[Rfam]
The record is a 61-nucleotide RNA sequence from Phascolarctos cinereus, which matches "mir-7386 microRNA precursor family" in Rfam.
A search with the family's covariance model found it, with a score of 61 bits.
The source organism's lineage runs through Eukaryota, Eumetazoa, Gnathostomata, Mammalia and Phascolarctos.
Nucleotides: 061
Stems, first nucleotide, its partner, number of pairs: 002058001005055003008050005018041007026034001
Number, partner (000 for none) and nucleotide at each position: 001000c002058c003000u004000u005055g006054g007053a008050g009049a010048a011047g012046g013000c014000a015000u016000u017000u018041u019040a020039u021038u022037u023036u024035g025000u026034g027000a028000a029000u030000a031000u032000u033000g034026c035024c036023a037022a038021a039020a040019u041018a042000a043000a044000c045000a046012c047011c048010u049009u050008u051000u052000a053007u054006c055005c056000u057000u058002g059000g060000g061000g